Rfam assigns this 304-nucleotide RNA from Zea mays to the family "Plant signal recognition particle RNA".
Lineage of the source: Eukaryota > Streptophyta > Petrosaviidae > Poaceae > Zea.
RNA sequence: GCCGAGCAGCUAGCGUCUGCUUGUAACCCGAGCGGGGGCAAUAAAGUGGUGUGGAUGCCAAUUGUGGCGCUUGGACCCGGGCCUGGUACUGCAAUCUACGGCCCGCCCGUUCCAAGUUGGUAGUUGGGUUGUGACCGCUUUGGCGAAGGCCAUGGCGUCCCAACCUCUAGAGCGGCGCGCAAUGCGUGAGGCUGGUUUCACAGAGCAGCGAAUACCAUCCGCUUCCAACGGUGGAAGGAUAACGGGCCACUGCACUCCAGGCCCACCUAGGCUCAGGCGCUCUUUCUGGCAGACCACCUUUUUU
Numbered sequence: 001g002c003c004g005a006g007c008a009g010c011u012a013g014c015g016u017c018u019g020c021u022u023g024u025a026a027c028c029c030g031a032g033c034g035g036g037g038g039c040a041a042u043a044a045a046g047u048g049g050u051g052u053g054g055a056u057g058c059c060a061a062u063u064g065u066g067g068c069g070c071u072u073g074g075a076c077c078c079g080g081g082c083c084u085g086g087u088a089c090u091g092c093a094a095u096c097u098a099c100g101g102c103c104c105g106c107c108c109g110u111u112c113c114a115a116g117u118u119g120g121u122a123g124u125u126g127g128g129u130u131g132u133g134a135c136c137g138c139u140u141u142g143g144c145g146a147a148g149g150c151c152a153u154g155g156c157g158u159c160c161c162a163a164c165c166u167c168u169a170g171a172g173c174g175g176c177g178c179g180c181a182a183u184g185c186g187u188g189a190g191g192c193u194g195g196u197u198u199c200a201c202a203g204a205g206c207a208g209c210g211a212a213u214a215c216c217a218u219c220c221g222c223u224u225c226c227a228a229c230g231g232u233g234g235a236a237g238g239a240u241a242a243c244g245g246g247c248c249a250c251u252g253c254a255c256u257c258c259a260g261g262c263c264c265a266c267c268u269a270g271g272c273u274c275a276g277g278c279g280c281u282c283u284u285u286c287u288g289g290c291a292g293a294c295c296a297c298c299u300u301u302u303u304u
Base pairs, nucleotide, nucleotide: 001039002038003037004022005021006020007019008018009017010015027036028035029034043303044302045301046300048298049297050296051295053294056291057290058289059288060287061285064282066280068279069278070277071276072275073274074273076271077270079264080263081262082261083260084259085258086257088256090254091253094251100248101247102246103245104244105243107238108237110236111235112234113233114232116229117228118227119226120225122223123222124221126166127165128164129163130162131161133159134158136157137156138155139154141152142151143150144149167172174219175218177216183212185210186209187208192203193202194201

The base pairs follow the family's consensus structure, which is taken from published work. The family is grouped with related families in Rfam's "SRP clan". The match comes from Rfam's covariance-model search (228 bits).